The family of this 111-nucleotide RNA sequence from Oceanobacillus oncorhynchi is "SAM riboswitch aptamer (S box leader)". A search with the family's covariance model found it, with a score of 80 bits. Rfam links the family to the GO term regulation of gene expression. Rfam describes the family as follows. The SAM riboswitch is found upstream of a number of genes which code for proteins involved in methionine or cysteine biosynthesis in Gram-positive bacteria.
RNA sequence: UCCUUAUCAAGAGCCGGGGGAGGAACUGGUCCUAUAAUCCCGCAGCAACCAUUACUGGAAACGCAGUAAAAUGGUGCUAAUUCCAGCAAGUUUUCACUUGAGAGAUGAGGC
Numbered sequence: 001u002c003c004u005u006a007u008c009a010a011g012a013g014c015c016g017g018g019g020g021a022g023g024a025a026c027u028g029g030u031c032c033u034a035u036a037a038u039c040c041c042g043c044a045g046c047a048a049c050c051a052u053u054a055c056u057g058g059a060a061a062c063g064c065a066g067u068a069a070a071a072u073g074g075u076g077c078u079a080a081u082u083c084c085a086g087c088a089a090g091u092u093u094u095c096a097c098u099u100g101a102g103a104g105a106u107g108a109g110g111c
Base pairs, nucleotide, nucleotide: 002110003109004108005107006106007105008104013043015042016041017040018039022032023031024030026086027085028084029083044078045077046076047075049074050073052069053068054067055066056065082103087100088099089098090097091096